Shown here is a 128-nucleotide RNA from Microtus ochrogaster, a member of the family "Small nucleolar RNA SNORA24". The organism belongs to Microtus, within Eukaryota. It scores 83 bits against the family's covariance model. Pairs were carried over by alignment from the consensus structure, which was predicted with RNAfold.

[Rfam]
RNA sequence: CUCUGUUUAUCUUUGGGACCUGCCAGCUACGGCAGCCUCCCUUCCUAGCCACAGAAGAGUGUUCUUAUUUCUGACAAAGUUGUCACUAUUUAAAUGGGUUAUGAUUCUGACAUCAAUAAGUAACAUUC
Numbered sequence: 001c002u003c004u005g006u007u008u009a010u011c012u013u014u015g016g017g018a019c020c021u022g023c024c025a026g027c028u029a030c031g032g033c034a035g036c037c038u039c040c041c042u043u044c045c046u047a048g049c050c051a052c053a054g055a056a057g058a059g060u061g062u063u064c065u066u067a068u069u070u071c072u073g074a075c076a077a078a079g080u081u082g083u084c085a086c087u088a089u090u091u092a093a094a095u096g097g098g099u100u101a102u103g104a105u106u107c108u109g110a111c112a113u114c115a116a117u118a119a120g121u122a123a124c125a126u127u128c
Stems, first nucleotide, its partner, number of pairs: 002055005015041004020035005066125001068123002072119001074117001076113001080103001086097003
Overview:
Gene Ontology terms of the family: nucleolus and RNA processing.